ASpks TB sRNA: a 75-nucleotide RNA sequence from Streptomyces sp. Ag109_G2-6. Pairs were carried over by alignment from the consensus structure, which is taken from published work. NCBI's taxonomy places the organism under Bacteria, Actinomycetota, Actinomycetes, Streptomycetaceae, Streptomyces.

[Rfam]
RNA sequence: CUUCAGCGAGCCGAGGUAGAGGGGCUCGUCGGCGGAGCGCUCCUGUCCGUACGUGGCCAGGAGGGCCUGCGCCUC
Numbered sequence: 001c002u003u004c005a006g007c008g009a010g011c012c013g014a015g016g017u018a019g020a021g022g023g024g025c026u027c028g029u030c031g032g033c034g035g036a037g038c039g040c041u042c043c044u045g046u047c048c049g050u051a052c053g054u055g056g057c058c059a060g061g062a063g064g065g066c067c068u069g070c071g072c073c074u075c
Base pairs, nucleotide, nucleotide: 014026015025017023032070033069038065043060044059045058047056048055049054